[Rfam]
RNA: S15-Flavobacteria ribosomal protein leader
RNA sequence: UACUUUUGCACCCUGAUUACCAGAGAGGUAAUUUUUACAUAAAAAUCAUUUAAAUAAUAUUGGCAUG
Numbered sequence: 001u002a003c004u005u006u007u008g009c010a011c012c013c014u015g016a017u018u019a020c021c022a023g024a025g026a027g028g029u030a031a032u033u034u035u036u037a038c039a040u041a042a043a044a045a046u047c048a049u050u051u052a053a054a055u056a057a058u059a060u061u062g063g064c065a066u067g
Stems, first nucleotide, its partner, number of pairs: 015033005